Rfam assigns this 143-nucleotide RNA sequence from Tenuibacillus multivorans to the family "Ribosomal protein L20 leader".
Rfam links the family to the GO term regulation of gene expression.
The family's consensus secondary structure was predicted with CMfinder.
This family is a putative r-protein leader autoregulatory structure found in B. subtilis and other low-GC Gram-positive bacteria. It is located in the 5' untranslated regions of mRNAs encoding initiation factor 3 followed by ribosomal proteins L35 and L20 (infC-rpmI-rplT).
It is annotated as a cis-regulatory leader.
It scores 69 bits against the family's covariance model.
[Rfam]
RNA sequence: AUAGACAAGUAGGAGCACCCGCUUCUCACCUGAUCGACGCCGCUUGAGCAGUUGGCAGGUUAUCAUUUCUAACACAUACGUUUAGUAUGUUAUUUGAGAGAUAAUAGUGUGGGUGCAGUCUGUACCGACACUUUUUUUAUGUG
Numbered sequence: 001a002u003a004g005a006c007a008a009g010u011a012g013g014a015g016c017a018c019c020c021g022c023u024u025c026u027c028a029c030c031u032g033a034u035c036g037a038c039g040c041c042g043c044u045u046g047a048g049c050a051g052u053u054g055g056c057a058g059g060u061u062a063u064c065a066u067u068u069c070u071a072a073c074a075c076a077u078a079c080g081u082u083u084a085g086u087a088u089g090u091u092a093u094u095u096g097a098g099a100g101a102u103a104a105u106a107g108u109g110u111g112g113g114u115g116c117a118g119u120c121u122g123u124a125c126c127g128a129c130a131c132u133u134u135u136u137u138u139a140u141g142u143g
Stems, first nucleotide, its partner, number of pairs: 011026006028060003036053003039049002108130003112126006